RNA sequence: CUAGCGGACACCGCAAGGUCCCUGUCACGUCGACAGGCUGUCUUCUGCGGUCCGCUCUGCGGGCCGCAACCGGCACCGCCGGAUUUAACCCGCCGGCAUCGAGCCGGC
Numbered sequence: 001c002u003a004g005c006g007g008a009c010a011c012c013g014c015a016a017g018g019u020c021c022c023u024g025u026c027a028c029g030u031c032g033a034c035a036g037g038c039u040g041u042c043u044u045c046u047g048c049g050g051u052c053c054g055c056u057c058u059g060c061g062g063g064c065c066g067c068a069a070c071c072g073g074c075a076c077c078g079c080c081g082g083a084u085u086u087a088a089c090c091c092g093c094c095g096g097c098a099u100c101g102a103g104c105c106g107g108c
Stems, first nucleotide, its partner, number of pairs: 010019003021037006046068009070082004092108006

This 108-nucleotide RNA sequence from Pseudomonas kuykendallii belongs to the Rfam family "Pseudomon-groES RNA".
Pairs were carried over by alignment from the consensus structure, which is taken from published work.